[Rfam]
RNA sequence: GGUUUGCUGAACCUAAAAUCAGCAACACAAGGACAUGGCAACGUCCUAAAGAGCCUA
Numbered sequence: 001g002g003u004u005u006g007c008u009g010a011a012c013c014u015a016a017a018a019u020c021a022g023c024a025a026c027a028c029a030a031g032g033a034c035a036u037g038g039c040a041a042c043g044u045c046c047u048a049a050a051g052a053g054c055c056u057a
Stems, first nucleotide, its partner, number of pairs: 001013004005024005031046004
A member of the RNA family "GP20-b RNA", 57 nucleotides long. The sequence is in the family's curated seed alignment.